[Rfam]
This 93-nucleotide RNA from Gossypium davidsonii belongs to the Rfam family "mir-393 microRNA precursor family". On this family, see Kruszka et al., J Plant Physiol 2012: "Role of microRNAs and other sRNAs of plants in their changing environments". The match comes from Rfam's covariance-model search (66 bits). Lineage of the source: Eukaryota > Streptophytina > Embryophyta > Euphyllophyta > Gossypium. The family has 27 seed sequences and 1,052 matches in Rfam 15.1. Rfam links the family to the GO terms miRNA-mediated post-transcriptional gene silencing and RISC complex.
RNA sequence: AAAGGAGGAAUCCAAAGGGAUAGCAUGAUCCAAAAUUAGGGUAAAAUUUUCUUAAAAAUAAAGGAUCAAUGCGAUCCCUUUGGAUCCCUCCUC
Numbered sequence: 001a002a003a004g005g006a007g008g009a010a011u012c013c014a015a016a017g018g019g020a021u022a023g024c025a026u027g028a029u030c031c032a033a034a035a036u037u038a039g040g041g042u043a044a045a046a047u048u049u050u051c052u053u054a055a056a057a058a059u060a061a062a063g064g065a066u067c068a069a070u071g072c073g074a075u076c077c078c079u080u081u082g083g084a085u086c087c088c089u090c091c092u093c
Stems, first nucleotide, its partner, number of pairs: 003092004008087001010085012023072003026068006